[Rfam]
RNA sequence: UUUCCACUUCGGAAAUCGUUCUCAAAAUCGUAUUUUGAAAACGAUUUCCGAAGUGGAAA
Numbered sequence: 001u002u003u004c005c006a007c008u009u010c011g012g013a014a015a016u017c018g019u020u021c022u023c024a025a026a027a028u029c030g031u032a033u034u035u036u037g038a039a040a041a042c043g044a045u046u047u048c049c050g051a052a053g054u055g056g057a058a059a
Stems, first nucleotide, its partner, number of pairs: 001059003005055014022038005
RNA: Drosophila rox1 ncRNA